[Rfam]
RNA sequence: CUGCAUGUUGCACCCGGGAUUCUCUGAAAUAUACUGUGACGAAAAAAUCCCCAAUGCUCAUGCUAAAUUUUUUUCGUUUAGUGUUGCAGGUUUGCUUAGUUCUUCAACAGCUUAUUUGUGUCAAAAUAACUGCCACAUUU
Numbered sequence: 001c002u003g004c005a006u007g008u009u010g011c012a013c014c015c016g017g018g019a020u021u022c023u024c025u026g027a028a029a030u031a032u033a034c035u036g037u038g039a040c041g042a043a044a045a046a047a048u049c050c051c052c053a054a055u056g057c058u059c060a061u062g063c064u065a066a067a068u069u070u071u072u073u074u075c076g077u078u079u080a081g082u083g084u085u086g087c088a089g090g091u092u093u094g095c096u097u098a099g100u101u102c103u104u105c106a107a108c109a110g111c112u113u114a115u116u117u118g119u120g121u122c123a124a125a126a127u128a129a130c131u132g133c134c135a136c137a138u139u140u
Base pairs, nucleotide, nucleotide: 003063004062005061006060007059010057011056016051017050018049019048020047021045023042024041075132076130077129078128082123083122085120086119087118088117089116090115094111095110096109